[Rfam]
RNA sequence: CUUCAAGAGACUCAACUGCCAAGCUCCGACUCGGUUGAGCGCCAACCCCAUGUUCAAGGGUGGCUCGGAUGACGAAGCGGCCCGUAUUCGCCGCCACGGCGGCAUGUUGACCGGUACGGGCAAGAGCACCGA
Numbered sequence: 001c002u003u004c005a006a007g008a009g010a011c012u013c014a015a016c017u018g019c020c021a022a023g024c025u026c027c028g029a030c031u032c033g034g035u036u037g038a039g040c041g042c043c044a045a046c047c048c049c050a051u052g053u054u055c056a057a058g059g060g061u062g063g064c065u066c067g068g069a070u071g072a073c074g075a076a077g078c079g080g081c082c083c084g085u086a087u088u089c090g091c092c093g094c095c096a097c098g099g100c101g102g103c104a105u106g107u108u109g110a111c112c113g114g115u116a117c118g119g120g121c122a123a124g125a126g127c128a129c130c131g132a
Base pairs, nucleotide, nucleotide: 001077002076003075004074009040011039012038013037014036015035016034022031023030041064042063043062046060047059048058080121081120082119083118084117085116086115087114
Shown here is a 132-nucleotide RNA from Rothia kristinae, a member of the family "SAM (S-adenosyl methionine) riboswitch aptamer". NCBI's taxonomy places the organism under Bacteria, Actinomycetota, Micrococcales, Micrococcaceae, Rothia. Rfam describes the family as follows. SAM-IV is a mRNA element that regulates gene expression via direct sensing of S-adenosylmethionine (SAM or AdoMet). SAM-IV riboswitches share conserved nucleotide positions with the previously described SAM-I riboswitches sequence analysis and molecular recognition experiments suggest that SAM-I and SAM-IV riboswitches share similar ligand binding sites, but have different scaffolds. On this family, see Weinberg et al., RNA 2008: "The aptamer core of SAM-IV riboswitches mimics the ligand-binding site of SAM-I riboswitches". Rfam links the family to the GO terms S-adenosylmethionine metabolic process and regulation of gene expression.